[Rfam]
RNA: DUF3800-IX RNA
Organism: Anaerolineae bacterium
Nucleotides: 075
Stems, first nucleotide, its partner, number of pairs: 002070007009062002016033006036058004
Number, partner (000 for none) and nucleotide at each position: 001000u002070c003069c004068c005067g006066c007065c008064c009062g010061c011000g012000a013000a014000a015000a016033g017032c018031c019030g020029c021028c022000g023000a024000g025000u026000g027000u028021g029020g030019c031018g032017g033016c034000c035000u036058g037057c038056c039055c040000c041000c042000u043000g044000c045000g046000c047000g048000a049000a050000g051000g052000a053000u054000c055039g056038g057037g058036c059000u060000a061010g062009c063000a064008g065007g066006g067005c068004g069003g070002g071000u072000u073000a074000u075000u